[Rfam]
RNA sequence: GUUCCCGAUGAUGCCUAUGUUGACCAUGCUAAUGCUGAAAUGUUUUGAUGAUGAUUCAUUGUACGUUAUGAGGGAAUA
Numbered sequence: 001g002u003u004c005c006c007g008a009u010g011a012u013g014c015c016u017a018u019g020u021u022g023a024c025c026a027u028g029c030u031a032a033u034g035c036u037g038a039a040a041u042g043u044u045u046u047g048a049u050g051a052u053g054a055u056u057c058a059u060u061g062u063a064c065g066u067u068a069u070g071a072g073g074g075a076a077u078a
Base pairs, nucleotide, nucleotide: 001077002076003075004074005073

Rfam assigns this 78-nucleotide RNA from Musa acuminata to the family "Small nucleolar RNA snoR53Y". Rfam links the family to the GO terms RNA processing and nucleolus. For this family Rfam cites "Multiple snoRNA gene clusters from Arabidopsis" (Brown et al., RNA, 2001). The source organism's lineage runs through Eukaryota, Viridiplantae, Streptophyta, Musaceae and Musa acuminata.